[Rfam]
RNA sequence: AAGUGUAAAUAGCAAAUCCAUUGAAAGGUGGAGACGCAAAGCCAUGAGUCUAAAGCAACGUUAAUUGCCAUGAUAGUCAGGUUGCCAAA
Numbered sequence: 001a002a003g004u005g006u007a008a009a010u011a012g013c014a015a016a017u018c019c020a021u022u023g024a025a026a027g028g029u030g031g032a033g034a035c036g037c038a039a040a041g042c043c044a045u046g047a048g049u050c051u052a053a054a055g056c057a058a059c060g061u062u063a064a065u066u067g068c069c070a071u072g073a074u075a076g077u078c079a080g081g082u083u084g085c086c087a088a089a
Stems, first nucleotide, its partner, number of pairs: 012037002017032006040083004045079003048074003055068004